The family of this 75-nucleotide RNA from Xanthomonas albilineans is "Xanthomonas sRNA sX9". The family has 16 seed sequences and 309 matches in Rfam 15.1. Pairs were carried over by alignment from the consensus structure, which was predicted with RNAalifold.
RNA sequence: AUGUGCCCCUGUAGACUGCGGUUCCUGCGCGCCGUCCGCGCUCUUCCGACAGCGACUCGCAACGUGUUGUUAGCC
Numbered sequence: 001a002u003g004u005g006c007c008c009c010u011g012u013a014g015a016c017u018g019c020g021g022u023u024c025c026u027g028c029g030c031g032c033c034g035u036c037c038g039c040g041c042u043c044u045u046c047c048g049a050c051a052g053c054g055a056c057u058c059g060c061a062a063c064g065u066g067u068u069g070u071u072a073g074c075c
Stems, first nucleotide, its partner, number of pairs: 002015001004013003019034004024029001046073001048071005